A member of the RNA family "mir-16 microRNA precursor family" from Terrapene triunguis, 75 nucleotides long. Its family is annotated with miRNA-mediated post-transcriptional gene silencing and RISC complex in the Gene Ontology. A reference for the family is Calin et al. (2002), "Frequent deletions and down-regulation of micro- RNA genes miR15 and miR16 at 13q14 in chronic lymphocytic leukemia", Proc Natl Acad Sci U S A. The family is grouped with related families in Rfam's "mir-15 clan". The family's consensus secondary structure was predicted with PFOLD.

[Rfam]
RNA sequence: GCCAGCAGCAGCACACAAGUAAGGGUGGCAUGGUAUGGUAUUGUCACCCUUACUUCUGUGCUGCUGUUCGCAGGU
Numbered sequence: 001g002c003c004a005g006c007a008g009c010a011g012c013a014c015a016c017a018a019g020u021a022a023g024g025g026u027g028g029c030a031u032g033g034u035a036u037g038g039u040a041u042u043g044u045c046a047c048c049c050u051u052a053c054u055u056c057u058g059u060g061c062u063g064c065u066g067u068u069c070g071c072a073g074g075u
Stems, first nucleotide, its partner, number of pairs: 001075003005071002007065008018054008